The record is a 445-nucleotide part of an RNA from Candidatus Parvarchaeum acidiphilum, which matches "Archaeal large subunit ribosomal RNA" in Rfam. Rfam's curators put it in the seed alignment. The family's consensus secondary structure is taken from published work. The source organism's lineage runs through Archaea, Nanobdellati, Candidatus Parvarchaeota, Candidatus Parvarchaeum and Candidatus Parvarchaeum acidiphilum.
[Rfam]
RNA sequence: CCCAUCGAAAUAUCCCAUAGGAUAGCUUAUACCCGAAUUUUAAAAGAGGUAAAGACACUGAUUGUGUUGGUAGGAGCCGAAAGGCUCCACAACAUUGUCAAACUCAGAAUUCCUUUAAAAAUAGGUAUAAGUUGGGUGUAUGGCGUAAAGUUUUACACCGAGAAGGAAACAACCUAGCCAUGAGUUAAGGCCCUUAAAUGUUUACUAAGUGCAAAAAAGAGGAAUCAUUUCUAAAACAGUUGGGAGGUGGGCUCAGAAGCGGCCAUCCUUCAAAAAGUGUGUUACAACUUACCAACCUAGAUAUGGUAACUCGAAAAUGGACGGGGCUAAGUAAGCUGCCGAAACUCAUGAUUUUGAUAAAAGUUUAUCAAAAAUGGUAGAUGGGCGUACCUGCAGACUAGAAGUCUUUUCGUGAGGGAAGAUGGAUCUGUAAGGUAUUGAGAAU
Dot-bracket structure: ((((((....(((((....))))).(((((((.......(((((.((.....((.....(((.((((((...((((((....)))))).)))))).)))...))......)).)))))......)))))))...((((((.((.......)).))))))....(((......)))...(((((((...(((......(.((((((.............(((..(((((.((.......(((((.(((..(((.........)))..)))(...)(...((......)).).)))))...)).)))))..)))..................))))))))))...)))))))((.(((((........)))))..))....))))))(.((((((((((......((((((((....))))))))...)))))).))))..).....